[Rfam]
RNA sequence: GGCGUAAAGCGCGUCUAGGCGGCCUUUUAAGUCUGAUGUGAAAAUGCGGGGCUCAACUCCGUAUUGCGUUGGAAACUGGAAGGCUAGAGUAUCAGAGAGGUGGGCGGAACUACAAGUGUAGAGGUGAAAUUCGUAGAUAUUUGUAGGAAUGCCGAUGGGGAAGCCAGCUCACUGGAUGAAUACUGACGCUAAAGCGCGAAAGCGUGGGGAGCAAACGGGAUUAGAUACCCCGGUAGUCCACGCCGUAAACGAUGAUCACUAAGUGUGGGGGGUCGAACCUCCGUGCUCAAGCUAACGCGAUAAGUGAUCCGCCUGGGGAGUACGUACGCAAGUAUGAAACUCAAAGGAAU
Numbered sequence: 001g002g003c004g005u006a007a008a009g010c011g012c013g014u015c016u017a018g019g020c021g022g023c024c025u026u027u028u029a030a031g032u033c034u035g036a037u038g039u040g041a042a043a044a045u046g047c048g049g050g051g052c053u054c055a056a057c058u059c060c061g062u063a064u065u066g067c068g069u070u071g072g073a074a075a076c077u078g079g080a081a082g083g084c085u086a087g088a089g090u091a092u093c094a095g096a097g098a099g100g101u102g103g104g105c106g107g108a109a110c111u112a113c114a115a116g117u118g119u120a121g122a123g124g125u126g127a128a129a130u131u132c133g134u135a136g137a138u139a140u141u142u143g144u145a146g147g148a149a150u151g152c153c154g155a156u157g158g159g160g161a162a163g164c165c166a167g168c169u170c171a172c173u174g175g176a177u178g179a180a181u182a183c184u185g186a187c188g189c190u191a192a193a194g195c196g197c198g199a200a201a202g203c204g205u206g207g208g209g210a211g212c213a214a215a216c217g218g219g220a221u222u223a224g225a226u227a228c229c230c231c232g233g234u235a236g237u238c239c240a241c242g243c244c245g246u247a248a249a250c251g252a253u254g255a256u257c258a259c260u261a262a263g264u265g266u267g268g269g270g271g272g273u274c275g276a277a278c279c280u281c282c283g284u285g286c287u288c289a290a291g292c293u294a295a296c297g298c299g300a301u302a303a304g305u306g307a308u309c310c311g312c313c314u315g316g317g318g319a320g321u322a323c324g325u326a327c328g329c330a331a332g333u334a335u336g337a338a339a340c341u342c343a344a345a346g347g348a349a350u
Base pairs, nucleotide, nucleotide: 001313002312003311009310011197012196013195014194016191018190019189020188022084023083024082025081026080027079028078030077031076032073033072034071035070036069037068038067039066040065045063046062047061048060049059050058051057088184089183090182092179093178094177099173100172101171102170103169104168105167106150110146111145112144113143114142115141116140117139121132122131123130158165159164202243203242204241205240206239207238211237212236216232217231218230219229254309255308256307257306258305259304262287263286264285265284266283267282268281269280270279271278291298292297315342316341317340324335325334326333327332
A member of the RNA family "Bacterial small subunit ribosomal RNA" from Ilyobacter polytropus, 350 nucleotides of a longer RNA. The match comes from Rfam's covariance-model search (1555 bits). The family's consensus secondary structure is taken from published work.